[Rfam]
Plastid-psbM 3UTR RNA: a 91-nucleotide RNA sequence from Pentadiplandra brazzeana. From the family's description: Plastid psbM is a non-coding RNA (ncRNA) recognised in plastids. It was found in the three prime untranslated region (3UTR) of psbM gene, its 3UTR location suggests a role in transcript maturation. The sequence is in the family's curated seed alignment.

RNA sequence: CGGUAGUAUGGUAGAAAGAAAGAUUCAUCUAUUUCUUUCUACCAUACUAUCCAUUAUUGUUAUUUUAAUGUAUAAAAAUACAAGUUGAAUA
Numbered sequence: 001c002g003g004u005a006g007u008a009u010g011g012u013a014g015a016a017a018g019a020a021a022g023a024u025u026c027a028u029c030u031a032u033u034u035c036u037u038u039c040u041a042c043c044a045u046a047c048u049a050u051c052c053a054u055u056a057u058u059g060u061u062a063u064u065u066u067a068a069u070g071u072a073u074a075a076a077a078a079u080a081c082a083a084g085u086u087g088a089a090u091a
Base pairs, nucleotide, nucleotide: 002051003050004049005048006047007046008045009044010043011042012041013040014039015038016037017036018035019034020033021032